RNA sequence: CUUCACGGCGCCGAGCAGCAGCGGCGUCUCGCGCUCCUGCCCGUACGUGGCGAGAAGCGCCUGCGCCUC
Number, nucleotide and partner (000 for none) at each position: 001c000002u000003u000004c000005a000006c000007g000008g000009c000010g000011c000012c000013g000014a000015g025016c024017a000018g000019c000020a000021g000022c000023g000024g016025c015026g000027u000028c065029u000030c063031g000032c059033g058034c000035u000036c000037c054038u053039g000040c000041c050042c049043g048044u000045a000046c000047g000048u043049g042050g041051c000052g000053a038054g037055a000056a000057g000058c033059g032060c000061c000062u000063g030064c000065g028066c000067c000068u000069c000